[Rfam]
RNA sequence: GGGCCAGGCCCGCCGAGUCGUGCUCGCAUGAGCCGGGGACCCACCGCAACUGGGGUGAAUCCACAGGCCGACGGCCUGUGGUAGGGCGACCUUUCGCGCCCGAACCCGUCAGCUAACCCGGUAGGCGGACGCGUAAGGAGAA
Numbered sequence: 001g002g003g004c005c006a007g008g009c010c011c012g013c014c015g016a017g018u019c020g021u022g023c024u025c026g027c028a029u030g031a032g033c034c035g036g037g038g039a040c041c042c043a044c045c046g047c048a049a050c051u052g053g054g055g056u057g058a059a060u061c062c063a064c065a066g067g068c069c070g071a072c073g074g075c076c077u078g079u080g081g082u083a084g085g086g087c088g089a090c091c092u093u094u095c096g097c098g099c100c101c102g103a104a105c106c107c108g109u110c111a112g113c114u115a116a117c118c119c120g121g122u123a124g125g126c127g128g129a130c131g132c133g134u135a136a137g138g139a140g141a142a
Base pairs, nucleotide, nucleotide: 011127012126013125014124018031019030020029032122033121034120035119036118037117042052043051053107054106055105061081062080063079064078065077066076084101085100086099087098
A member of the RNA family "c-di-AMP riboswitch aptamer (ydaO/yuaA leader)" from Dactylosporangium sucinum, 142 nucleotides long. Lineage of the source: Bacteria > Actinomycetota > Actinomycetes > Micromonosporaceae > Dactylosporangium. The match comes from Rfam's covariance-model search (88 bits). This family represents a conserved RNA structure found upstream of the ydaO and yuaA genes in Bacillus subtilis and related genes in other bacteria.